Overview
Shown here is a 125-nucleotide RNA sequence from Pseudoroseicyclus aestuarii, a member of the family "Alphaproteobacterial ar14". A reference for the family is Robledo et al. (2017), "A conserved alpha-proteobacterial small RNA contributes to osmoadaptation and symbiotic efficiency of rhizobia on legume roots", Environ Microbiol. The family has 118 seed sequences and 784 matches in Rfam 15.1. Rfam classes the family as a small RNA. The organism belongs to Pseudoroseicyclus, within Bacteria. Pairs were carried over by alignment from the consensus structure. Rfam describes the family as follows. Smr14C2 was renamed NfeR1 (Nodule Formation Efficiency RNA) highly expressed in salt stress and during the symbiotic interaction on legume roots. Rfam links the family to the GO term biological process involved in symbiotic interaction.
[Rfam]
RNA sequence: GAGUUUCGAUACGGAUCCUCCUCCUCCCUGAUCCGUUUCGAUACCGGCGCCGCGCUUCACCUCCUCCCGAGGCGCAGUGUCACAAGGCGGCGACCCCCUCCUCCUCCCUGGGGUCGCCGCUUUAA
Numbered sequence: 001g002a003g004u005u006u007c008g009a010u011a012c013g014g015a016u017c018c019u020c021c022u023c024c025u026c027c028c029u030g031a032u033c034c035g036u037u038u039c040g041a042u043a044c045c046g047g048c049g050c051c052g053c054g055c056u057u058c059a060c061c062u063c064c065u066c067c068c069g070a071g072g073c074g075c076a077g078u079g080u081c082a083c084a085a086g087g088c089g090g091c092g093a094c095c096c097c098c099u100c101c102u103c104c105u106c107c108c109u110g111g112g113g114u115c116g117c118c119g120c121u122u123u124a125a
Stems, first nucleotide, its partner, number of pairs: 007040003011036007050077001052075005087120011